[Rfam]
RNA: Bacterial RNase P class A
Organism: Bifidobacterium canis
RNA sequence: CGAGACCUCUUGAUGGCCGCGAUCGCGUAUGCGAUUGAGGAACUUCCGGGCUCCAAAGAGCACGAUGGCAGAUAACGUCUGCCCAGGGUGACCUGAGAGAUAGCGCAGCAGAGAACAGACCGCCGGCUGUUGGCCGGUAAGGGUGAAACGGCGGUGUAAGAGACCACCGGGCUUCUGGUAACAGAACGCCGCACGGCAAGCCUCAUCGGGAGCAAGGCCAAGCAGAAGGCUAUAGAGUUGCUCGCUCUGCCUUCGGGUAGGCUGCUAGAGCCUGACGGCGACGUCAGGUCGAGAUGGAUGGCCAUCCGUUUGCAUUUGCAUUCGACAGAACCCGGGGUAUAAGAGGUCUCACUCA
Dot-bracket structure: .(((((((((.(((((((.(((((((....)))))))....[[[.[[[[[((((...[[[[.((((((((((.....)))))(((((....)))).)((...((((.............(((((((((...)))))))..)).......((.(((.......))).))((((.((((....))).).))).)...))..)))))))))))))...((((.....((((((...(((((.]]]]))))))))))).....))))......((((((((....))))))))..........)))))))........................]]]]]]]]...))))))))).....